[Rfam]
RNA sequence: GUCUCCGAGAGUCGGAAGGCUUCGAAAAACCACGAGGACGGGGCGCGGUGGCGAACGUCGCCGUCUUUCUCGCGGAGUUCAUUCGCCGCGGGAGGGCGGCGGGAACGACGUCUGCGGCUUCGCGGCCGCACGGCGCCGGAUCUCGUCGCUUUCGUCGGCCGUUCGCGCUCGCUCGCUCGACGAGCGUUCCAGCAAAGAAAACCCGCGUCCGACCGUAAGCGCUAGUGAUAGAUCCGAUCGUGAAAGACUGCAUCGGUCUUUCCGGAUCGCUCAUCUUGCAAAAGCGCACGGCGCGAUGUGACCAAGCACACACAGACACGUGAAAGCCGGAUCUCGGGCCGGGCGCGGAGCGAGCGGUUCCCGUUCGUUUCGACGCGCGGGGAUCGGUUCCUCGCUCCGUUUCGCCUCCGAGCACCAUGGUUCCAGCGUGACACGCACGCGUGCACGUCGACGUGGAGACCCGGAAUCGUUCGCAAACGACUUAGGUGCUGGGCGGAGUGUUGUACACUAGAGAGCAUCACGAAACUUUGAGAUGCGAUCUGUUGAGACUAUGCUCUUGCUCGGGGGAUUCGU
Numbered sequence: 001g002u003c004u005c006c007g008a009g010a011g012u013c014g015g016a017a018g019g020c021u022u023c024g025a026a027a028a029a030c031c032a033c034g035a036g037g038a039c040g041g042g043g044c045g046c047g048g049u050g051g052c053g054a055a056c057g058u059c060g061c062c063g064u065c066u067u068u069c070u071c072g073c074g075g076a077g078u079u080c081a082u083u084c085g086c087c088g089c090g091g092g093a094g095g096g097c098g099g100c101g102g103g104a105a106c107g108a109c110g111u112c113u114g115c116g117g118c119u120u121c122g123c124g125g126c127c128g129c130a131c132g133g134c135g136c137c138g139g140a141u142c143u144c145g146u147c148g149c150u151u152u153c154g155u156c157g158g159c160c161g162u163u164c165g166c167g168c169u170c171g172c173u174c175g176c177u178c179g180a181c182g183a184g185c186g187u188u189c190c191a192g193c194a195a196a197g198a199a200a201a202c203c204c205g206c207g208u209c210c211g212a213c214c215g216u217a218a219g220c221g222c223u224a225g226u227g228a229u230a231g232a233u234c235c236g237a238u239c240g241u242g243a244a245a246g247a248c249u250g251c252a253u254c255g256g257u258c259u260u261u262c263c264g265g266a267u268c269g270c271u272c273a274u275c276u277u278g279c280a281a282a283a284g285c286g287c288a289c290g291g292c293g294c295g296a297u298g299u300g301a302c303c304a305a306g307c308a309c310a311c312a313c314a315g316a317c318a319c320g321u322g323a324a325a326g327c328c329g330g331a332u333c334u335c336g337g338g339c340c341g342g343g344c345g346c347g348g349a350g351c352g353a354g355c356g357g358u359u360c361c362c363g364u365u366c367g368u369u370u371c372g373a374c375g376c377g378c379g380g381g382g383a384u385c386g387g388u389u390c391c392u393c394g395c396u397c398c399g400u401u402u403c404g405c406c407u408c409c410g411a412g413c414a415c416c417a418u419g420g421u422u423c424c425a426g427c428g429u430g431a432c433a434c435g436c437a438c439g440c441g442u443g444c445a446c447g448u449c450g451a452c453g454u455g456g457a458g459a460c461c462c463g464g465a466a467u468c469g470u471u472c473g474c475a476a477a478c479g480a481c482u483u484a485g486g487u488g489c490u491g492g493g494c495g496g497a498g499u500g501u502u503g504u505a506c507a508c509u510a511g512a513g514a515g516c517a518u519c520a521c522g523a524a525a526c527u528u529u530g531a532g533a534u535g536c537g538a539u540c541u542g543u544u545g546a547g548a549c550u551a552u553g554c555u556c557u558u559g560c561u562c563g564g565g566g567g568a569u570u571c572g573u
Stems, first nucleotide, its partner, number of pairs: 001460007464571005470484001473481001490563006496556003500549002507543002512539001515536005

Record summary: A member of the RNA family "Eukaryotic large subunit ribosomal RNA" from Pediculus humanus, 573 nucleotides of a longer RNA. The family's consensus secondary structure is taken from published work. Lineage of the source: Eukaryota > Protostomia > Mandibulata > Dicondylia > Pediculus humanus.